[Rfam]
RNA: Group II catalytic intron D1-D4-5
Organism: Carnobacterium sp. 17-4
RNA sequence: GAGAACUGAUCAAAUGAGAGUUGGAAUGAGAGAGUAACGACUUGAAACGACUCCCCUAAUCCUCCGAUAUGCUUUUGGAUAGGUAAAAAUCCAACAAAGUAUAAAGCUCGGUGAAGUCAGCUGAAAAAAGCCGUAAGUAAGGCAAGUUUCUUACACGAAAAAAGUCCAGAGGUGGAUUGUGCUUUUGAUAGGCUGGGGGUCUUAUAA
Number, nucleotide and partner (000 for none) at each position: 001g000002a000003g000004a000005a000006c000007u000008g000009a000010u000011c000012a000013a000014a000015u000016g000017a000018g053019a052020g051021u050022u049023g048024g000025a000026a000027u000028g000029a000030g000031a043032g042033a000034g000035u000036a000037a000038c000039g000040a000041c000042u032043u031044g000045a000046a000047a000048c023049g022050a021051c020052u019053c018054c199055c198056c197057u196058a000059a000060u000061c000062c000063u000064c111065c110066g109067a108068u103069a102070u101071g100072c099073u098074u097075u096076u094077g092078g091079a090080u000081a000082g000083g000084u000085a000086a000087a000088a000089a000090u079091c078092c077093a000094a076095c000096a075097a074098a073099g072100u071101a070102u069103a068104a000105a000106g000107c000108u067109c066110g065111g064112u000113g000114a000115a000116g000117u000118c195119a194120g193121c192122u191123g000124a000125a000126a186127a185128a184129a183130g182131c181132c157133g156134u155135a000136a000137g000138u000139a000140a152141g151142g150143c000144a000145a000146g000147u000148u000149u000150c142151u141152u140153a000154c000155a134156c133157g132158a000159a000160a000161a180162a000163a178164g177165u176166c175167c174168a173169g000170a000171g000172g000173u168174g167175g166176a165177u164178u163179g000180u161181g131182c130183u129184u128185u127186u126187g000188a000189u000190a000191g122192g121193c120194u119195g118196g057197g056198g055199g054200u000201c000202u000203u000204a000205u000206a000207a000